[Rfam]
Nucleotides: 133
Base pairs, nucleotide, nucleotide: 003055005053006052007051008050010049013046014045017040018039020037022035024033025032026031057073058072059071060070061069062068079119080118081117082116083111084110085109086108087106088105089104090103091102092101093100
Number, partner (000 for none) and nucleotide at each position: 001000u002000u003055g004000c005053a006052c007051a008050g009000g010049g011000a012000a013046c014045a015000c016000c017040c018039a019000a020037g021000u022035g023000u024033g025032c026031u027000u028000u029000a030000u031026a032025g033024u034000u035022c036000u037020u038000g039018u040017g041000u042000c043000c044000u045014u046013g047000a048000c049010u050008c051007u052006g053005u054000a055003c056000u057073a058072g059071a060070g061069u062068a063000a064000a065000g066000u067000c068062u069061g070060u071059u072058c073057u074000u075000u076000a077000c078000c079119u080118c081117u082116g083111c084110a085109u086108u087106g088105a089104a090103a091102g092101g093100a094000g095000u096000a097000c098000u099000g100093u101092c102091c103090u104089u105088u106087u107000u108086a109085a110084u111083g112000u113000a114000u115000u116082c117081a118080g119079a120000a121000a122000a123000u124000g125000a126000g127000c128000a129000c130000a131000u132000c133000a

This 133-nucleotide RNA from Nannospalax galili belongs to the Rfam family "Small nucleolar RNA SNORA22". Pairs were carried over by alignment from the consensus structure, which was predicted with RNAfold. Its family is annotated with nucleolus and RNA processing in the Gene Ontology. The family's RNA type in Rfam is H/ACA-box small nucleolar RNA. ACA22 is a member of the H/ACA class of snoRNA that guide the sites of modification of uridines to pseudouridines. The organism belongs to Nannospalax, within Eukaryota. The family has 31 seed sequences and 883 matches in Rfam 15.1. A search with the family's covariance model found it, with a score of 122 bits.